[Rfam]
RNA sequence: UGCGACACCCAUCAAAGGAGUAGUUCCCCAUCCAGGAGCCACUUUGUUCUCAACUC
Numbered sequence: 001u002g003c004g005a006c007a008c009c010c011a012u013c014a015a016a017g018g019a020g021u022a023g024u025u026c027c028c029c030a031u032c033c034a035g036g037a038g039c040c041a042c043u044u045u046g047u048u049c050u051c052a053a054c055u056c
Stems, first nucleotide, its partner, number of pairs: 017045005023039005
The family of this 56-nucleotide sequence from Eucalyptus grandis is "Plastid-psbN 5UTR RNA". The family's consensus secondary structure was predicted with LocARNA. The organism belongs to Eucalyptus, within Eukaryota. The match comes from Rfam's covariance-model search (58 bits). Rfam classes the family as a cis-regulatory element. About the family: Plastid psbN is a non-coding RNA (ncRNA) recognised in plastids. It was reported as a conserved 11 stem-loop in the prime untranslated region (5UTR) of psbN genes. It has been reported that the motif is retained in a subset of mature transcripts in barley, which can suggests a possible role in transcript alternative 5 prime processing.